[Rfam]
Nucleotides: 168
Base pairs, nucleotide, nucleotide: 013022014021015020038127039126040125044118045117046116047115049113052110053109055107057106058105059104060103061102065098066097068095069094071092076090077089078088079087080086081085134154135153136152137151138150139149140148
Number, partner (000 for none) and nucleotide at each position: 001000u002000a003000a004000c005000a006000a007000a008000u009000a010000a011000u012000a013022a014021u015020g016000c017000a018000a019000a020015c021014a022013u023000a024000a025000a026000c027000a028000c029000a030000c031000a032000a033000c034000a035000c036000a037000a038127u039126g040125g041000u042000a043000a044118a045117a046116c047115u048000a049113a050000c051000a052110u053109c054000u055107c056000u057106c058105a059104g060103c061102c062000u063000c064000c065098u066097c067000c068095u069094a070000a071092c072000u073000c074000u075000c076090g077089u078088g079087c080086a081085u082000g083000a084000u085081g086080u087079g088078c089077g090076u091000g092071g093000c094069u095068a096000a097066g098065g099000c100000u101000c102061g103060g104059c105058u106057g107055g108000a109053g110052a111000a112000a113049u114000a115047a116046g117045u118044u119000c120000a121000c122000u123000a124000u125040c126039c127038a128000c129000a130000c131000u132000u133000u134154g135153c136152c137151c138150g139149c140148a141000c142000u143000c144000a145000c146000a147000c148140u149139g150138c151137g152136g153135g154134c155000c156000u157000u158000u159000u160000u161000u162000g163000u164000u165000u166000a167000u168000g
Record summary
This 168-nucleotide RNA sequence from Pasteurellaceae bacterium 15-036681 belongs to the Rfam family "Actinobacillus sRNA 14". The source organism's lineage runs through Bacteria, Pseudomonadati, Gammaproteobacteria, Pasteurellales and Pasteurellaceae. The family's consensus secondary structure was predicted with RNAfold. From the family's description: Arrc stands for Actinobacillus pleuropneumoniae Regulatory RNA Candidate. May control the expression of ferric permease (gene afuB2) and ferredoxin (fdx). TargetRNA2 was used for the predictions.